Annotation: The family of this 255-nucleotide part of an RNA from Thermoplasmatales archaeon Gpl is "Archaeal large subunit ribosomal RNA". A reference for the family is Yusupov et al. (2001), "Crystal structure of the ribosome at 5.5 A resolution", Science. The family's consensus secondary structure is taken from published work.

[Rfam]
RNA sequence: CGAUGUCUGAAGGGAAGGAGCCUUUAGUACGAGAGGAACGGGGGUUCGUGGCUUCUGGUUUACCGAUUGUCCGGCAGGGCAUUGUCGGGUAGCCACGCCAUACACGGAUAAAAGCUGAAGGCAUCUAAGCUUGAAGCCGACCCUGAAAAGAGACAUCGUUUGAGGCCACUCAUAAAAGAUGAGAUUGAUAGAACUGGGAUGUAAGUAUCAAGGUUCGCCGAGGUAUUCAGUCCACAGUUACUAAUCGGCCAAAUG
Numbered sequence: 001c002g003a004u005g006u007c008u009g010a011a012g013g014g015a016a017g018g019a020g021c022c023u024u025u026a027g028u029a030c031g032a033g034a035g036g037a038a039c040g041g042g043g044g045u046u047c048g049u050g051g052c053u054u055c056u057g058g059u060u061u062a063c064c065g066a067u068u069g070u071c072c073g074g075c076a077g078g079g080c081a082u083u084g085u086c087g088g089g090u091a092g093c094c095a096c097g098c099c100a101u102a103c104a105c106g107g108a109u110a111a112a113a114g115c116u117g118a119a120g121g122c123a124u125c126u127a128a129g130c131u132u133g134a135a136g137c138c139g140a141c142c143c144u145g146a147a148a149a150g151a152g153a154c155a156u157c158g159u160u161u162g163a164g165g166c167c168a169c170u171c172a173u174a175a176a177a178g179a180u181g182a183g184a185u186u187g188a189u190a191g192a193a194c195u196g197g198g199a200u201g202u203a204a205g206u207a208u209c210a211a212g213g214u215u216c217g218c219c220g221a222g223g224u225a226u227u228c229a230g231u232c233c234a235c236a237g238u239u240a241c242u243a244a245u246c247g248g249c250c251a252a253a254u255g
Stems, first nucleotide, its partner, number of pairs: 001158008011144004017047003021043004048101005056095003063088005068081005105139003112132005164250004169183004189243003192239005197233003205226005212219001